[Rfam]
RNA sequence: CCUGAGAUGGGGGAGGUGUUCCUCAGCCCGGGUUGCGAGAUGGUGCAGGCCAGGCCGAGGGACCCUACCAGUGCACG
Numbered sequence: 001c002c003u004g005a006g007a008u009g010g011g012g013g014a015g016g017u018g019u020u021c022c023u024c025a026g027c028c029c030g031g032g033u034u035g036c037g038a039g040a041u042g043g044u045g046c047a048g049g050c051c052a053g054g055c056c057g058a059g060g061g062a063c064c065c066u067a068c069c070a071g072u073g074c075a076c077g
Stems, first nucleotide, its partner, number of pairs: 003075002006072001008070003014066003018063007026055003030051002033048005
A member of the RNA family "mir-9193 microRNA precursor family" from Myotis davidii, 77 nucleotides long. The organism belongs to Myotis, within Eukaryota. The base pairs follow the family's consensus structure, which was predicted with RNAalifold.